[Rfam]
RNA sequence: AGCUGGUCGGGGUCGACGGCGCGGGACGCGAGCAGGUAGUCGCGCAUCACGAUGCCGUGCCGACCCUC
Numbered sequence: 001a002g003c004u005g006g007u008c009g010g011g012g013u014c015g016a017c018g019g020c021g022c023g024g025g026a027c028g029c030g031a032g033c034a035g036g037u038a039g040u041c042g043c044g045c046a047u048c049a050c051g052a053u054g055c056c057g058u059g060c061c062g063a064c065c066c067u068c
Stems, first nucleotide, its partner, number of pairs: 004063001006061001008059002012029002015027001017025001035056004040052003044048001

ASdes TB sRNA: a 68-nucleotide RNA from Streptomyces sp. NRRL WC-3618. A reference for the family is Arnvig and Young (2009), "Identification of small RNAs in Mycobacterium tuberculosis", Mol Microbiol. Pairs were carried over by alignment from the consensus structure, which is taken from published work. Lineage of the source: Bacteria > Actinomycetota > Actinomycetes > Streptomycetaceae > Streptomyces. It is annotated as a small RNA.